This 59-nucleotide sequence from Orlajensenia flava belongs to the Rfam family "msiK RNA".

RNA sequence: GCGACACAUCCAUUCACUACGGAUCGUCCGGCACGUACCUGCCGGUGAAGGAGAAGAUC
Numbered sequence: 001g002c003g004a005c006a007c008a009u010c011c012a013u014u015c016a017c018u019a020c021g022g023a024u025c026g027u028c029c030g031g032c033a034c035g036u037a038c039c040u041g042c043c044g045g046u047g048a049a050g051g052a053g054a055a056g057a058u059c
Stems, first nucleotide, its partner, number of pairs: 010051002013049004028045006
Lineage of the source: Bacteria > Bacillati > Actinomycetes > Micrococcales > Orlajensenia. The base pairs follow the family's consensus structure, which is taken from published work.